[Rfam]
RNA: Bacterial large subunit ribosomal RNA, nucleotides 465 to 1053
RNA sequence: GAGUUAAUAAAUUAGGCGAGCUUAAGUAAUGAUACGCAAGCUUACGUGAAAGCAAACAUUAAAAUGUGAAAUAAGUCUUAUUUAUUAUACCCGAAACCAAGUGAUCUAUUAUUGAACAAGCUUAAGUAUAAGUCUUAAGGCUGAACUCGUGUCUGUUGCAAAAGGCUGAGAUGAUUCAAUAAUAGGAGUGAAAGGCUAAUCAAACUUGGAUAUAGCUGGUUCUUUGCGAAAUCUAUUUAGGUAGAGUGUAAAACACAUCUUUUAGGGGUAGAGCUCUGUUAAAGGAAGGGGGCUUAGCUUACUGACUUUUUGCAAACUACGAAUACUAAAAAAUAGAAUGUUUUAUAAACAAACAGUAGGUGAUAAGAUCUAUUGUUGAGAGGGAAACAGCCCAGACUUAUCGCUAAGGUCUUUAAAAUAAUUUUAGUGCAAAAAGAGUAUUGAUUUUAUGACAGCUAAUAUGUAGGCUUGGAAGCAGCCAUCAUUGAAAGAAAGCGUAGUAGCUCAUUAGUUAAAAAUCAACAUUCUGAAAAUGUAGGAGACUAAAUUAUUACCGAAGCGGAAGCAAGAUGAUUCUUGGGUAGCAAAG
Numbered sequence: 001g002a003g004u005u006a007a008u009a010a011a012u013u014a015g016g017c018g019a020g021c022u023u024a025a026g027u028a029a030u031g032a033u034a035c036g037c038a039a040g041c042u043u044a045c046g047u048g049a050a051a052g053c054a055a056a057c058a059u060u061a062a063a064a065u066g067u068g069a070a071a072u073a074a075g076u077c078u079u080a081u082u083u084a085u086u087a088u089a090c091c092c093g094a095a096a097c098c099a100a101g102u103g104a105u106c107u108a109u110u111a112u113u114g115a116a117c118a119a120g121c122u123u124a125a126g127u128a129u130a131a132g133u134c135u136u137a138a139g140g141c142u143g144a145a146c147u148c149g150u151g152u153c154u155g156u157u158g159c160a161a162a163a164g165g166c167u168g169a170g171a172u173g174a175u176u177c178a179a180u181a182a183u184a185g186g187a188g189u190g191a192a193a194g195g196c197u198a199a200u201c202a203a204a205c206u207u208g209g210a211u212a213u214a215g216c217u218g219g220u221u222c223u224u225u226g227c228g229a230a231a232u233c234u235a236u237u238u239a240g241g242u243a244g245a246g247u248g249u250a251a252a253a254c255a256c257a258u259c260u261u262u263u264a265g266g267g268g269u270a271g272a273g274c275u276c277u278g279u280u281a282a283a284g285g286a287a288g289g290g291g292g293c294u295u296a297g298c299u300u301a302c303u304g305a306c307u308u309u310u311u312g313c314a315a316a317c318u319a320c321g322a323a324u325a326c327u328a329a330a331a332a333a334u335a336g337a338a339u340g341u342u343u344u345a346u347a348a349a350c351a352a353a354c355a356g357u358a359g360g361u362g363a364u365a366a367g368a369u370c371u372a373u374u375g376u377u378g379a380g381a382g383g384g385a386a387a388c389a390g391c392c393c394a395g396a397c398u399u400a401u402c403g404c405u406a407a408g409g410u411c412u413u414u415a416a417a418a419u420a421a422u423u424u425u426a427g428u429g430c431a432a433a434a435a436g437a438g439u440a441u442u443g444a445u446u447u448u449a450u451g452a453c454a455g456c457u458a459a460u461a462u463g464u465a466g467g468c469u470u471g472g473a474a475g476c477a478g479c480c481a482u483c484a485u486u487g488a489a490a491g492a493a494a495g496c497g498u499a500g501u502a503g504c505u506c507a508u509u510a511g512u513u514a515a516a517a518a519u520c521a522a523c524a525u526u527c528u529g530a531a532a533a534u535g536u537a538g539g540a541g542a543c544u545a546a547a548u549u550a551u552u553a554c555c556g557a558a559g560c561g562g563a564a565g566c567a568a569g570a571u572g573a574u575u576c577u578u579g580g581g582u583a584g585c586a587a588a589g
Stems, first nucleotide, its partner, number of pairs: 005087008014078004020041004026035003046053002056067004090219002093216001097209006106185011117173001119142004126134001128133001146170003151166004187197003222589006232245005247348001248346007257334002260331006271320001272318002277314003281310004288303002290300004352377010382393003397565003402561003408555003417552007435528005441522007455512005461485003466480003486490001491506001495504002566579005